[Rfam]
RNA sequence: UUCCUCGUGGCCCAAUGGUCACGGCGUCUGGCUACGAACCAGAAGAUUCCAGGUUCAAGUCCUGGCGGGGAAG
Dot-bracket structure: (((((((..(((..........))).(((((.......))))).....(((((.......)))))))))))).
This 73-nucleotide sequence from Saccharomyces cerevisiae belongs to the Rfam family "tRNA". Rfam classes the family as a transfer RNA. A reference for the family is Hou (1993), "The tertiary structure of tRNA and the development of the genetic code", Trends Biochem Sci. About the family: Transfer RNA (tRNA) molecules are approximately 80 nucleotides in length. Pairs were carried over by alignment from the consensus structure, which is taken from published work.